[Rfam]
RNA sequence: GGGUCGAUGAUGAGAACUUCCUGAGGACGCUGAGGGACUCAUAACAAAUGGCAAUCUGAGGUCC
Numbered sequence: 001g002g003g004u005c006g007a008u009g010a011u012g013a014g015a016a017c018u019u020c021c022u023g024a025g026g027a028c029g030c031u032g033a034g035g036g037a038c039u040c041a042u043a044a045c046a047a048a049u050g051g052c053a054a055u056c057u058g059a060g061g062u063c064c
Stems, first nucleotide, its partner, number of pairs: 001064005
A member of the RNA family "Small nucleolar RNA SNORD109A" from Nannospalax galili, 64 nucleotides long. It scores 71 bits against the family's covariance model. By type it is a C/D-box small nucleolar RNA. Gene Ontology terms of the family: nucleolus and RNA processing. About the family: Humans have two copies of the SNORD109 gene, SNORD109A and SNORD109B. The family has 7 seed sequences and 412 matches in Rfam 15.1. The base pairs follow the family's consensus structure, which was predicted with WAR. The family is grouped with related families in Rfam's "SNORD74 clan".